[Rfam]
RNA sequence: AGCACUAUAUUUAAACCUAUGUAUGGGAAAUUUCCCCAUUCUUGGUUACGCUGUAGUGCAAAAAGAAUUCCUGGCUCCUUGUAGCACAGCUGACUGAUGCCAUUUUGCUGUUGCUUUAUGGAGUUAAGGGACAUGA
Number, nucleotide and partner (000 for none) at each position: 001a000002g059003c058004a057005c056006u055007a054008u053009a052010u000011u000012u000013a000014a047015a046016c045017c044018u000019a000020u000021g041022u000023a039024u038025g037026g036027g035028a000029a000030a000031u000032u000033u000034c000035c027036c026037c025038a024039u023040u000041c021042u000043u000044g017045g016046u015047u014048a000049c000050g000051c000052u009053g008054u007055a006056g005057u004058g003059c002060a000061a000062a000063a000064a000065g000066a000067a000068u131069u130070c129071c128072u127073g125074g124075c123076u122077c121078c120079u000080u118081g117082u000083a000084g114085c113086a112087c110088a109089g108090c107091u000092g105093a104094c000095u000096g000097a000098u000099g000100c000101c000102a000103u000104u093105u092106u000107g090108c089109u088110g087111u000112u086113g085114c084115u000116u000117u081118a080119u000120g078121g077122a076123g075124u074125u073126a000127a072128g071129g070130g069131a068132c000133a000134u000135g000136a000
RNA: Small nucleolar RNA SNORA46